[Rfam]
RNA sequence: CCUUUGCCUGGUUCAAGUAAUCCAGGAUAGGUUAGUUCCCACUAGUACGGCCUAUUCUUGGUUACUUGUUUCAGGAGGAGG
Numbered sequence: 001c002c003u004u005u006g007c008c009u010g011g012u013u014c015a016a017g018u019a020a021u022c023c024a025g026g027a028u029a030g031g032u033u034a035g036u037u038c039c040c041a042c043u044a045g046u047a048c049g050g051c052c053u054a055u056u057c058u059u060g061g062u063u064a065c066u067u068g069u070u071u072c073a074g075g076a077g078g079a080g081g
Stems, first nucleotide, its partner, number of pairs: 002080004007075005014068009024058010
RNA: mir-26 microRNA precursor family
Organism: Danio rerio